[Rfam]
Nucleotides: 447
Base pairs, nucleotide, nucleotide: 001443002442003441004440005439006438007437008436009435010434011432012400013399014398015397016396017395018394020048021047022046023045024044025043026042028040053430054429055428057427058426059425060424061423062304063303064302065301069335070334071333072332074300075299076298077297078296079093080092081091082090083089094108095106096105097104098103109295110294114293115292116289117288118287130236131235132232133231134230136228137227138226244262245261247259248258249257264284265282266281267280268279269278270277271276308357309356310355311353318347319346320345321344322343323342327339328338329337330336364383365382366381367380368379369378370377371376
Number, partner (000 for none) and nucleotide at each position: 001443g002442a003441a004440g005439c006438u007437a008436a009435u010434c011432a012400g013399a014398u015397g016396a017395u018394c019000g020048c021047g022046g023045g024044g025043g026042u027000a028040a029000g030000g031000a032000c033000c034000g035000a036000a037000a038000g039000g040028u041000c042026g043025c044024c045023u046022c047021u048020g049000a050000g051000g052000a053430a054429a055428g056000u057427c058426c059425g060424a061423g062304c063303u064302c065301c066000a067000c068000a069335g070334g071333g072332c073000a074300a075299g076298g077297u078296g079093c080092u081091g082090g083089g084000u085000a086000a087000c088000a089083c090082c091081c092080a093079g094108u095106g096105g097104g098103g099000g100000a101000a102000a103098c104097c105096c106095c107000a108094a109295g110294g111000a112000a113000a114293g115292u116289g117288c118287a119000a120000c121000a122000g123000a124000g125000a126000g127000a128000u129000a130236c131235c132232g133231c134230c135000g136228a137227u138226c139000a140000a141000g142000g143000a144000g145000g146000u147000c148000a149000g150000u151000u152000g153000u154000c155000a156000g157000a158000g159000g160000c161000c162000u163000g164000a165000g166000g167000u168000c169000a170000g171000a172000a173000u174000a175000a176000a177000u178000u179000c180000g181000u182000u183000c184000u185000c186000a187000g188000c189000c190000g191000a192000a193000u194000u195000c196000u197000g198000g199000c200000u201000u202000c203000c204000g205000g206000c207000u208000u209000c210000u211000g212000a213000c214000u215000a216000c217000u218000g219000g220000c221000u222000u223000c224000c225000g226138g227137g228136u229000a230134g231133g232132u233000a234000a235131g236130g237000g238000u239000g240000g241000a242000a243000a244262g245261g246000c247259g248258a249257g250000g251000u252000a253000a254000g255000a256000g257249c258248u259247c260000a261245c262244c263000g264284g265282c266281a267280g268279u269278c270277a271276g272000g273000u274000g275000a276271c277270u278269g279268g280267c281266u282265g283000g284264c285000c286000a287118u288117g289116u290000a291000a292115a293114c294110c295109c296078c297077a298076c299075c300074u301065g302064g303063a304062g305000c306000a307000a308357g309356a310355c311353u312000g313000a314000a315000u316000a317000g318347g319346g320345g321344a322343a323342c324000u325000a326000u327339g328338a329337a330336c331000g332072g333071c334070c335069c336330g337329u338328u339327u340000u341000u342323g343322u344321u345320c346319c347318c348000g349000g350000g351000u352000a353311a354000g355310g356309u357308c358000g359000c360000u361000a362000g363000a364383g365382g366381c367380c368379g369378u370377c371376g372000g373000u374000a375000a376371c377370g378369g379368c380367g381366g382365u383364u384000c385000g386000a387000g388000a389000u390000a391000g392000a393000u394018g395017a396016u397015c398014a399013u400012c401000a402000c403000c404000u405000c406000c407000a408000u409000a410000u411000g412000g413000a414000g415000g416000g417000a418000c419000a420000g421000a422000a423061c424060u425059c426058g427057g428055c429054u430053u431000a432011u433000a434010g435009g436008u437007u438006g439005g440004c441003u442002u443001c444000g445000c446000u447000c